[Rfam]
RNA sequence: CGGGGGGCCGGAGGGUGGAAGGCAGGGGGGUGUAGGAUGGGUAUCAGGACUUCCACUUCCCGUCCUUCCAUCCCCCGUUCCCCUC
Dot-bracket structure: .(((((..(((.((((((((((..(((..(((.....................)))..)))..)))))))))).)))..))))).

Record summary:
Rfam assigns this 85-nucleotide RNA sequence from Simplexvirus humanalpha1 to the family "mir-H1 microRNA precursor family". Pairs were carried over by alignment from the consensus structure, which was predicted with RNAalifold.